RNA sequence: CGUUGUCUUCGGACAACCAGCCAAUGCUUCAGCACUCUGUGAGAAGUGCCUUCGGGUGAGUGCCAACCAAAGUUUCAGCAGUCUGUGAGAAACGCCUUCGGGUGACUGCCAAUAGCCUUGUAGCCUGAAAGAGGAAGCCCAUGUGGCGGUAACUCC
Numbered sequence: 001c002g003u004u005g006u007c008u009u010c011g012g013a014c015a016a017c018c019a020g021c022c023a024a025u026g027c028u029u030c031a032g033c034a035c036u037c038u039g040u041g042a043g044a045a046g047u048g049c050c051u052u053c054g055g056g057u058g059a060g061u062g063c064c065a066a067c068c069a070a071a072g073u074u075u076c077a078g079c080a081g082u083c084u085g086u087g088a089g090a091a092a093c094g095c096c097u098u099c100g101g102g103u104g105a106c107u108g109c110c111a112a113u114a115g116c117c118u119u120g121u122a123g124c125c126u127g128a129a130a131g132a133g134g135a136a137g138c139c140c141a142u143g144u145g146g147c148g149g150u151a152a153c154u155c156c
Base pairs, nucleotide, nucleotide: 002017003016004015005014006013007012026047027046028045029044030043032063033062034061035060036059037058048057049056050055072093073092074091075090076089078109079108080107081106082105083104094103095102096101116134117133118132120153121152123150124149125148137147138146139145
About this RNA
This 156-nucleotide RNA from Serratia proteamaculans belongs to the Rfam family "STAXI RNA". Rfam 15.1 lists 130 matches to the family in 68 species. The family's consensus secondary structure is taken from published work. NCBI's taxonomy places the organism under Bacteria, Pseudomonadota, Yersiniaceae, Serratia, Serratia proteamaculans. Rfam's curators put it in the seed alignment. It is annotated as a small RNA.